[Rfam]
RNA sequence: UGAGACGACUUGGCAAUCGCACUGAUAGUAAUAUCGGUGAGGAAAGUCCGGGCUCCAUAGGGUAAGGUGCCAGGUAACACCUGGGGGGCGCGAGCCCACGGCCAGUGCAACAGAGAGUAUACCGCCGAAGCGAUUCGGUAAGGGUGAAAGGGUGCGGUAAGAGCGCACCGCGCUUCUGGUAACAGAAGUGGCAUGGUAAACCCCACCUGGAGCAAGACCAAAUAGAGGAACGUCUGCUUGCAGACAUGUGCGACCCGUACUGUUCCUGGGUAGGUUGCUUGAGGCUGAUGGUGACAUCAGUCCCAGAUGAAUGAUUGUCCACGACAGAACCCGGCUUAUCGGUCGUCUCAACCU
Numbered sequence: 001u002g003a004g005a006c007g008a009c010u011u012g013g014c015a016a017u018c019g020c021a022c023u024g025a026u027a028g029u030a031a032u033a034u035c036g037g038u039g040a041g042g043a044a045a046g047u048c049c050g051g052g053c054u055c056c057a058u059a060g061g062g063u064a065a066g067g068u069g070c071c072a073g074g075u076a077a078c079a080c081c082u083g084g085g086g087g088g089c090g091c092g093a094g095c096c097c098a099c100g101g102c103c104a105g106u107g108c109a110a111c112a113g114a115g116a117g118u119a120u121a122c123c124g125c126c127g128a129a130g131c132g133a134u135u136c137g138g139u140a141a142g143g144g145u146g147a148a149a150g151g152g153u154g155c156g157g158u159a160a161g162a163g164c165g166c167a168c169c170g171c172g173c174u175u176c177u178g179g180u181a182a183c184a185g186a187a188g189u190g191g192c193a194u195g196g197u198a199a200a201c202c203c204c205a206c207c208u209g210g211a212g213c214a215a216g217a218c219c220a221a222a223u224a225g226a227g228g229a230a231c232g233u234c235u236g237c238u239u240g241c242a243g244a245c246a247u248g249u250g251c252g253a254c255c256c257g258u259a260c261u262g263u264u265c266c267u268g269g270g271u272a273g274g275u276u277g278c279u280u281g282a283g284g285c286u287g288a289u290g291g292u293g294a295c296a297u298c299a300g301u302c303c304c305a306g307a308u309g310a311a312u313g314a315u316u317g318u319c320c321a322c323g324a325c326a327g328a329a330c331c332c333g334g335c336u337u338a339u340c341g342g343u344c345g346u347c348u349c350a351a352c353c354u
Stems, first nucleotide, its partner, number of pairs: 001350010012319007020039008044337003048334005053212004060256004065208005070084005085099001086097004100203002105201002107197002122143002124139006151169006170192001171190008216276004226267006248260004283302008

This 354-nucleotide RNA sequence from Methylophaga thalassica belongs to the Rfam family "Bacterial RNase P class A". The source organism's lineage runs through Bacteria, Pseudomonadati, Piscirickettsiaceae, Methylophaga and Methylophaga thalassica. Ribonuclease P (RNase P) is a ubiquitous endoribonuclease, found in archaea, bacteria and eukarya as well as chloroplasts and mitochondria.